Overview:
Pyrrolysine insertion sequence mtbB: a 100-nucleotide sequence from Olavius sp. associated proteobacterium Delta 1. The family has 23 seed sequences and 59 matches in Rfam 15.1. Its family is annotated with pyrrolysine incorporation in the Gene Ontology. For this family Rfam cites "Effects of using coding potential, sequence conservation and mRNA structure conservation for predicting pyrroly-sine containing genes" (Theil Have et al., BMC Bioinformatics, 2013). By type it is a cis-regulatory element.
[Rfam]
RNA sequence: UAGGUGGGCGUGGGCGACCCGCUCGGUAUGGCCGUCACCCACGCGAUUGCCUCGGGAAUGGGCGGAAUGAGAGCUGCUGGAGAUCUGGUGGCUCGCAUGC
Numbered sequence: 001u002a003g004g005u006g007g008g009c010g011u012g013g014g015c016g017a018c019c020c021g022c023u024c025g026g027u028a029u030g031g032c033c034g035u036c037a038c039c040c041a042c043g044c045g046a047u048u049g050c051c052u053c054g055g056g057a058a059u060g061g062g063c064g065g066a067a068u069g070a071g072a073g074c075u076g077c078u079g080g081a082g083a084u085c086u087g088g089u090g091g092c093u094c095g096c097a098u099g100c
Stems, first nucleotide, its partner, number of pairs: 007038001010035004015030002017027003073092005079086002
Dot-bracket structure: ......(..((((.(((((.....))).)).))))..)..................................(((((.((....)).)))))........